[Rfam]
Guanidine-II riboswitch aptamer (mini-ykkC): a 44-nucleotide RNA from Alishewanella agri. NCBI's taxonomy places the organism under Bacteria, Pseudomonadati, Gammaproteobacteria, Alteromonadaceae, Alishewanella agri. The match comes from Rfam's covariance-model search (40 bits).
RNA sequence: CUGGGGACGACCCCAGUGCAUUCUCUCAUCCGGGGACGGCCCCA
Numbered sequence: 001c002u003g004g005g006g007a008c009g010a011c012c013c014c015a016g017u018g019c020a021u022u023c024u025c026u027c028a029u030c031c032g033g034g035g036a037c038g039g040c041c042c043c044a
Stems, first nucleotide, its partner, number of pairs: 001016006032043004